[Rfam]
RNA sequence: AAGAACUAAUAGCAUGAGAAAUCAAAUGAAAGAGUAACGUCUGGAAGGGUUUCCCUUAAUACUCCGAAUUGCUUUUGAAUAGAUAAAUAUUCAAUGGUAAUAAGCUCGGUGAAGUCGGCUGAGAGUACACCCUAAUGUUAAUCAUUCGAUUAGACAAGGAAAUGCGAACUAGAGGUAGUCGAGUGUAUGAUAGGUCGGAGGUCUAUAAA
Dot-bracket structure: .................((((((........(.(.....).).....))))))((((......((((((((((.(((((((......))))))).))))))....))))......(((((....(((((((((...((...............)).)))...(.((.((((....)))))))))))))....)))))))))........
RNA: Group II catalytic intron D1-D4-5
Organism: Clostridium sp. CAG:265